[Rfam]
RNA sequence: GCCGGUCCUCGGUAGUGGCCUCCGGGCGGUAGCACCCCCGGCGGCUUCGAUCGAAGACCGGC
Numbered sequence: 001g002c003c004g005g006u007c008c009u010c011g012g013u014a015g016u017g018g019c020c021u022c023c024g025g026g027c028g029g030u031a032g033c034a035c036c037c038c039c040g041g042c043g044g045c046u047u048c049g050a051u052c053g054a055a056g057a058c059c060g061g062c
Stems, first nucleotide, its partner, number of pairs: 001062007009054005017046004022041005028036003
Shown here is a 62-nucleotide RNA from Actinacidiphila guanduensis, a member of the family "Actino-pnp RNA".